[Rfam]
RNA: Streptomyces RNA 2736
RNA sequence: CACCCGGCUCGGAUCCCGUGGGGGGAAUCCGGCGCCGGGGAAAAGGAAGGCGCCCCGUCCGUCGAC
Numbered sequence: 001c002a003c004c005c006g007g008c009u010c011g012g013a014u015c016c017c018g019u020g021g022g023g024g025g026a027a028u029c030c031g032g033c034g035c036c037g038g039g040g041a042a043a044a045g046g047a048a049g050g051c052g053c054c055c056c057g058u059c060c061g062u063c064g065a066c
Stems, first nucleotide, its partner, number of pairs: 001064001003039005010031005015025003045054002